[Rfam]
RNA sequence: GGCCCGGUAGCUCAGUUGGUAGAGCAGAGGACUGAAAAUCCUUGUGUCGGUGGUUCGAUUCCGCCCCAGGCCA
Numbered sequence: 001g002g003c004c005c006g007g008u009a010g011c012u013c014a015g016u017u018g019g020u021a022g023a024g025c026a027g028a029g030g031a032c033u034g035a036a037a038a039u040c041c042u043u044g045u046g047u048c049g050g051u052g053g054u055u056c057g058a059u060u061c062c063g064c065c066c067c068a069g070g071c072c073a
Stems, first nucleotide, its partner, number of pairs: 001072004006067002010025004027043005049065005
Dot-bracket structure: ((((.((..((((........)))).(((((.......))))).....(((((.......))))))).)))).
A member of the RNA family "tRNA" from Extensimonas vulgaris, 73 nucleotides long. It is annotated as a transfer RNA. A search with the family's covariance model found it, with a score of 67 bits. Pairs were carried over by alignment from the consensus structure, which is taken from published work.